[Rfam]
RNA sequence: CCUGCCGAAGUUUCCCUCAGGAUAGCAGAAACUCACAUCAGUUCUAUGAGGUAAAGCGAAUGAUUAGAGGCCUUGGGGUUGAAACAACCUUAACCUAUUCUCAAACUUUAAAUAUGUAGGAAGUCCUUGCUACUUGAUUGAGCGAGGACAUGCGAAUGAGAGUUUCUAGUGGGCCAUUUUUGGUAAGCAGAACUGGCGAUGCGGGAUGAACCGAACGCGAGGUUAAGGUGCCGGAAUACACGCUCAUCAGACACCACAAAAGGUGUUAGUUCAUCUAGACAGCCGCACGGUGGCCAUGGAAGUCGGAAUCCGCUAAGGAGUGUGUAACAACUCAACGGCCGAAUGAACUAGCCCUGAAAAUGGAUGGCGCUCAAGCGUGUUACCCAUACCUCGCCGUCAGCGCUUUCGAGACGUUGACGAGUAGGCAGGCGUGGAGGUCCGUGAAGAAGCUUUCGCAGUGAUGCGGAGUAGAACGGCCUCUAGUGCAGAU
Numbered sequence: 001c002c003u004g005c006c007g008a009a010g011u012u013u014c015c016c017u018c019a020g021g022a023u024a025g026c027a028g029a030a031a032c033u034c035a036c037a038u039c040a041g042u043u044c045u046a047u048g049a050g051g052u053a054a055a056g057c058g059a060a061u062g063a064u065u066a067g068a069g070g071c072c073u074u075g076g077g078g079u080u081g082a083a084a085c086a087a088c089c090u091u092a093a094c095c096u097a098u099u100c101u102c103a104a105a106c107u108u109u110a111a112a113u114a115u116g117u118a119g120g121a122a123g124u125c126c127u128u129g130c131u132a133c134u135u136g137a138u139u140g141a142g143c144g145a146g147g148a149c150a151u152g153c154g155a156a157u158g159a160g161a162g163u164u165u166c167u168a169g170u171g172g173g174c175c176a177u178u179u180u181u182g183g184u185a186a187g188c189a190g191a192a193c194u195g196g197c198g199a200u201g202c203g204g205g206a207u208g209a210a211c212c213g214a215a216c217g218c219g220a221g222g223u224u225a226a227g228g229u230g231c232c233g234g235a236a237u238a239c240a241c242g243c244u245c246a247u248c249a250g251a252c253a254c255c256a257c258a259a260a261a262g263g264u265g266u267u268a269g270u271u272c273a274u275c276u277a278g279a280c281a282g283c284c285g286c287a288c289g290g291u292g293g294c295c296a297u298g299g300a301a302g303u304c305g306g307a308a309u310c311c312g313c314u315a316a317g318g319a320g321u322g323u324g325u326a327a328c329a330a331c332u333c334a335a336c337g338g339c340c341g342a343a344u345g346a347a348c349u350a351g352c353c354c355u356g357a358a359a360a361u362g363g364a365u366g367g368c369g370c371u372c373a374a375g376c377g378u379g380u381u382a383c384c385c386a387u388a389c390c391u392c393g394c395c396g397u398c399a400g401c402g403c404u405u406u407c408g409a410g411a412c413g414u415u416g417a418c419g420a421g422u423a424g425g426c427a428g429g430c431g432u433g434g435a436g437g438u439c440c441g442u443g444a445a446g447a448a449g450c451u452u453u454c455g456c457a458g459u460g461a462u463g464c465g466g467a468g469u470a471g472a473a474c475g476g477c478c479u480c481u482a483g484u485g486c487a488g489a490u
Stems, first nucleotide, its partner, number of pairs: 001429006011024001013022003027167007042121007054109001055107002061103003066098001068096003073093006080086001123149009173197004178192005202213003217394005223388001227384003236381001238380001241377003261355003265352010282339004288312003294306002313317001318333001322331002395419008430485001432482008441474002449469002455464003
Source information: Eukaryotic large subunit ribosomal RNA: a 490-nucleotide part of an RNA from Microbotryum intermedium. Taxonomically the source falls in Microbotryum (Eukaryota, Opisthokonta, Basidiomycota, Microbotryaceae). It scores 3356 bits against the family's covariance model.